[Rfam]
RNA: Repression of heat shock gene expression (ROSE) element
Organism: Enterobacter cancerogenus
RNA sequence: CGGGGGCACAGAAGCCUGUCCAUGGUGGAAGGCUACAUCUCUCGCUGAUUUCAGGAGUUUUAAUUUAUGCGUA
Numbered sequence: 001c002g003g004g005g006g007c008a009c010a011g012a013a014g015c016c017u018g019u020c021c022a023u024g025g026u027g028g029a030a031g032g033c034u035a036c037a038u039c040u041c042u043c044g045c046u047g048a049u050u051u052c053a054g055g056a057g058u059u060u061u062a063a064u065u066u067a068u069g070c071g072u073a
Stems, first nucleotide, its partner, number of pairs: 013034005019029003038063001041057003045054003